[Rfam]
RNA sequence: GUGUCUACCUCGGGGGGCACGAAAGUGCUGAGAUUGCGAAAGCUGACCCGUUGAACCUGAACCGGUUAACACCGGCGGAGGGAAGGUAUGGGCAAAACUC
Numbered sequence: 001g002u003g004u005c006u007a008c009c010u011c012g013g014g015g016g017g018c019a020c021g022a023a024a025g026u027g028c029u030g031a032g033a034u035u036g037c038g039a040a041a042g043c044u045g046a047c048c049c050g051u052u053g054a055a056c057c058u059g060a061a062c063c064g065g066u067u068a069a070c071a072c073c074g075g076c077g078g079a080g081g082g083a084a085g086g087u088a089u090g091g092g093c094a095a096a097a098c099u100c
Stems, first nucleotide, its partner, number of pairs: 006088005011050004016044001017028004036043002056081003062075004
Annotation:
Shown here is a 100-nucleotide RNA from Sulfitobacter donghicola, a member of the family "TPP riboswitch aptamer (THI element)". Its family is annotated with thiamine pyrophosphate binding in the Gene Ontology. The base pairs follow the family's consensus structure, which is taken from published work.